This 85-nucleotide RNA from Mastacembelus armatus belongs to the Rfam family "mir-142 microRNA precursor family". NCBI's taxonomy places the organism under Eukaryota, Chordata, Actinopterygii, Neoteleostei, Mastacembelus. The literature on the family includes a 2010 paper in BMC Genomics by Linsen et al., "Small RNA expression and strain specificity in the rat". A search with the family's covariance model found it, with a score of 76 bits.
RNA sequence: CAGUACACUCAUCCAUAAAGUAGGAAACACUACACUGUGGUAAGGAGUUUAGUAGUGCUUUCUACUUUAUGGAUGACUGCACUGU
Dot-bracket structure: .............((((((((((..(.((((((..................)))))).)..))))))))))..............